About this RNA: A member of the RNA family "Small nucleolar RNA SNORA5" from Callipepla squamata, 136 nucleotides long. The family has 6 seed sequences and 2,226 matches in Rfam 15.1. NCBI's taxonomy places the organism under Eukaryota, Gnathostomata, Coelurosauria, Neognathae, Callipepla. Pairs were carried over by alignment from the consensus structure, which was predicted with RNAfold. It is annotated as an H/ACA-box small nucleolar RNA.
RNA sequence: CGCAGCCUCGUCAAAUUCGGUGCCACCUCUGCCGUGGUGUGCCCCGGCCCAAGGGCUGCCACAGCACUGCCUGUGCUUCAUGGGCCCCACGUCCCUGCUGUGGGACGGUGGGGAUAAAAACCUGCCACGCACACGG
Number, nucleotide and partner (000 for none) at each position: 001c000002g059003c058004a057005g056006c000007c000008u000009c000010g000011u000012c000013a000014a000015a000016u000017u000018c046019g045020g044021u000022g042023c041024c039025a038026c037027c036028u000029c000030u000031g000032c000033c000034g000035u000036g027037g026038u025039g024040u000041g023042c022043c000044c020045c019046g018047g000048c000049c000050c000051a000052a000053g000054g000055g000056c005057u004058g003059c002060c000061a000062c000063a000064g000065c000066a000067c000068u000069g000070c000071c000072u000073g128074u127075g126076c000077u124078u000079c000080a000081u000082g000083g000084g000085c113086c112087c111088c110089a109090c000091g000092u000093c000094c000095c000096u000097g000098c000099u000100g000101u000102g000103g000104g000105a000106c000107g000108g000109u089110g088111g087112g086113g085114a000115u000116a000117a000118a000119a000120a000121c000122c000123u000124g077125c000126c075127a074128c073129g000130c000131a000132c000133a000134c000135g000136g000